[Rfam]
RNA sequence: CCUCCUUUUCUUGGCAUCUCUGAACUCUCCCCAUGUUCAUGAGAUGAAUGCAACCAGGAGGAAGAUAAACAUGAUGAACCUUCGGUGCCAGGGUUCUUAUGCCCUGGUCCCAUCCUCUAGCAUCAUUACAGGG
Numbered sequence: 001c002c003u004c005c006u007u008u009u010c011u012u013g014g015c016a017u018c019u020c021u022g023a024a025c026u027c028u029c030c031c032c033a034u035g036u037u038c039a040u041g042a043g044a045u046g047a048a049u050g051c052a053a054c055c056a057g058g059a060g061g062a063a064g065a066u067a068a069a070c071a072u073g074a075u076g077a078a079c080c081u082u083c084g085g086u087g088c089c090a091g092g093g094u095u096c097u098u099a100u101g102c103c104c105u106g107g108u109c110c111c112a113u114c115c116u117c118u119a120g121c122a123u124c125a126u127u128a129c130a131g132g133g
Stems, first nucleotide, its partner, number of pairs: 001061005015046006022038004072125005088107007